[Rfam]
Shown here is an 82-nucleotide RNA from Methylomonas methanica, a member of the family "tRNA".
RNA sequence: GCCGACGUGGUGAAAUUGGUAGACACGCCAUCUUGAGGGGGUGGUGACGCAAGUCGUGCCGGUUCAAGUCCGGCCGUCGGUA
Numbered sequence: 001g002c003c004g005a006c007g008u009g010g011u012g013a014a015a016u017u018g019g020u021a022g023a024c025a026c027g028c029c030a031u032c033u034u035g036a037g038g039g040g041g042u043g044g045u046g047a048c049g050c051a052a053g054u055c056g057u058g059c060c061g062g063u064u065c066a067a068g069u070c071c072g073g074c075c076g077u078c079g080g081u082a
Base pairs, nucleotide, nucleotide: 001081002080003079004078005077006076007075010026011025012024028044029043030042031041032040058074059073060072061071062070
The family's RNA type in Rfam is transfer RNA. Its Rfam clan is "tRNA clan". Pairs were carried over by alignment from the consensus structure, which is taken from published work. The match comes from Rfam's covariance-model search (48 bits).